[Rfam]
The family of this 117-nucleotide RNA from Cucumis sativus is "mir-393 microRNA precursor family".
A search with the family's covariance model found it, with a score of 88 bits.

RNA sequence: GGUGGAGAGUUCCAAAGGGAUCGCAUUGAUCCAAUGUUUGUCUUGUCUUAUCAAUGAUAUGUUGGAGUUGAUUCUCGAUCAAUUAUUGGAUCGUGCGAUCCCUUAGGAAUCUUCCAU
Numbered sequence: 001g002g003u004g005g006a007g008a009g010u011u012c013c014a015a016a017g018g019g020a021u022c023g024c025a026u027u028g029a030u031c032c033a034a035u036g037u038u039u040g041u042c043u044u045g046u047c048u049u050a051u052c053a054a055u056g057a058u059a060u061g062u063u064g065g066a067g068u069u070g071a072u073u074c075u076c077g078a079u080c081a082a083u084u085a086u087u088g089g090a091u092c093g094u095g096c097g098a099u100c101c102c103u104u105a106g107g108a109a110u111c112u113u114c115c116a117u
Stems, first nucleotide, its partner, number of pairs: 002117005009110005015104007023096004028092005